Overview: Rfam assigns this 103-nucleotide sequence from Burkholderia cepacia to the family "traJ-II RNA". Rfam's curators put it in the seed alignment. The family's RNA type in Rfam is cis-regulatory element. Rfam 15.1 lists 174 matches to the family in 172 species. The source organism's lineage runs through Bacteria, Pseudomonadati, Burkholderiales, Burkholderiaceae and Burkholderia cepacia complex. Pairs were carried over by alignment from the consensus structure, which is taken from published work.
RNA sequence: GGGCAGGAUAGGUGAAGUUAGCUAACCGGAAAGCCGGUUAUCUAUCUUCACUAUCCCCUUAUUCGCACUUCGUGCUCAACGGGGAAUCCUGCUCUGCGAGGCU
Numbered sequence: 001g002g003g004c005a006g007g008a009u010a011g012g013u014g015a016a017g018u019u020a021g022c023u024a025a026c027c028g029g030a031a032a033g034c035c036g037g038u039u040a041u042c043u044a045u046c047u048u049c050a051c052u053a054u055c056c057c058c059u060u061a062u063u064c065g066c067a068c069u070u071c072g073u074g075c076u077c078a079a080c081g082g083g084g085a086a087u088c089c090u091g092c093u094c095u096g097c098g099a100g101g102c103u
Stems, first nucleotide, its partner, number of pairs: 001094009012051006019044003024039006055084004065075004